[Rfam]
RNA sequence: CACAUGCUCCUUAGAUCCAUCUUUGUGAGUAUCUUUGUGCUGAGUUCUGCUGGAUAACUUCCGUUUCUAGCAGUUCCAGGCAGAGAUCCUCAGCAACUUUUCUGUUGUACAGUCAAAGAUGCUUGAGUCAUUGGCAUGUAAGAGGAAUGUAACUGCAUGGUGGCUUUCUGUUCUGAUAGCAGUGGCUGUCAAUGUACAUGUCACUUGUCACUAUCAGGGCUUGGCUGGUAUGCGGACACC
Numbered sequence: 001c002a003c004a005u006g007c008u009c010c011u012u013a014g015a016u017c018c019a020u021c022u023u024u025g026u027g028a029g030u031a032u033c034u035u036u037g038u039g040c041u042g043a044g045u046u047c048u049g050c051u052g053g054a055u056a057a058c059u060u061c062c063g064u065u066u067c068u069a070g071c072a073g074u075u076c077c078a079g080g081c082a083g084a085g086a087u088c089c090u091c092a093g094c095a096a097c098u099u100u101u102c103u104g105u106u107g108u109a110c111a112g113u114c115a116a117a118g119a120u121g122c123u124u125g126a127g128u129c130a131u132u133g134g135c136a137u138g139u140a141a142g143a144g145g146a147a148u149g150u151a152a153c154u155g156c157a158u159g160g161u162g163g164c165u166u167u168c169u170g171u172u173c174u175g176a177u178a179g180c181a182g183u184g185g186c187u188g189u190c191a192a193u194g195u196a197c198a199u200g201u202c203a204c205u206u207g208u209c210a211c212u213a214u215c216a217g218g219g220c221u222u223g224g225c226u227g228g229u230a231u232g233c234g235g236a237c238a239c240c
Base pairs, nucleotide, nucleotide: 002139003138004137005136006135007134008133010127011126012125013124014123018121019120020119021118022117023116024115025114026092027091028090029089031087034084035083036082037081040079041078042077044076047073048072049071050070053067056065057064058063093108094107095106096105097104153235154234155233156232157231162226163225164224165223172218173217174216175215176214177213178212179211183210184209185208190200191199
RNA: Small nucleolar RNA SNORA53
Organism: Ceyx cyanopectus